[Rfam]
Nucleotides: 065
Base pairs, nucleotide, nucleotide: 001027003025004024005023006022007021008020010019011018012017031052033050034049035048037047038046039045040044
Number, partner (000 for none) and nucleotide at each position: 001027c002000a003025g004024g005023g006022g007021a008020u009000g010019c011018c012017g013000c014000a015000a016000u017012c018011g019010g020008g021007u022006c023005c024004c025003c026000g027001g028000u029000g030000a031052a032000a033050c034049u035048u036000g037047c038046u039045g040044a041000c042000u043000a044040u045039c046038a047037g048035g049034a050033g051000a052031u053000u054000c055000g056000a057000g058000c059000c060000a061000u062000g063000a064000a065000c
A member of the RNA family "Repression of heat shock gene expression (ROSE) element", 65 nucleotides long. The match comes from Rfam's covariance-model search (55 bits). It is annotated as an RNA thermoregulator. The literature on the family includes a 2013 paper in PLoS One by Krajewski et al., "Short ROSE-Like RNA Thermometers Control IbpA Synthesis in Pseudomonas Species". Pairs were carried over by alignment from the consensus structure.